[Rfam]
RNA sequence: UCUAACUGAUAUUCCGAGAAGUGGAAUGACGGGGUAACGCCCUGAAACGCUUCCCUUGAUACUGCGUUGGAAGAAACGGGACGUAUUUCCCGCGACUGACACAGCACGCUGAAGUCGGCUGUCUGCACCCGCGACUGUCCCCUUUGGGGAUAAAGCAAAACCGAGCCAGAGGUGGCCGGGGGUGUUAGGCCGGAGGUCUAUAAA
Dot-bracket structure: .................((((((.......((((.....))))....))))))((((......((((((..((...(((((......)))))...))..))....))))......(((((....((((((((.....(.............)..))....(((.((((....)))))))))))))..)))))))))........
Description:
The family of this 204-nucleotide RNA sequence from Lachnospiraceae bacterium M18-1 is "Group II catalytic intron D1-D4-5". For this family Rfam cites "Group II introns: structure and catalytic versatility of large natural ribozymes" (Lehmann and Schmidt, Crit Rev Biochem Mol Biol, 2003). The pairing is the family consensus, mapped onto this sequence. Gene Ontology term of the family: Group II intron splicing. Group II introns are found in rRNA, tRNA and mRNA of organelles in fungi, plants and protists, and also in mRNA in bacteria.